About this RNA: This 80-nucleotide RNA from Myotis myotis belongs to the Rfam family "Y RNA". The family's consensus secondary structure is taken from published work. NCBI's taxonomy places the organism under Eukaryota, Deuterostomia, Vertebrata, Chiroptera, Myotis. The family's RNA type in Rfam is non-coding RNA gene.
RNA sequence: AGUUGGUCCGACGGUUGUGGGUUAUUGUUAAGCUGAUUAACAUUGUCUCCCUCCACACAACCACAUUUGACUGACUUUGU
Numbered sequence: 001a002g003u004u005g006g007u008c009c010g011a012c013g014g015u016u017g018u019g020g021g022u023u024a025u026u027g028u029u030a031a032g033c034u035g036a037u038u039a040a041c042a043u044u045g046u047c048u049c050c051c052u053c054c055a056c057a058c059a060a061c062c063a064c065a066u067u068u069g070a071c072u073g074a075c076u077u078u079g080u
Stems, first nucleotide, its partner, number of pairs: 001076008010068002014064002016059004021054001026042003030038002
Dot-bracket structure: ((((((((.((..((((((.(....(((.((.....)).)))...........).))))...))..))))))))))....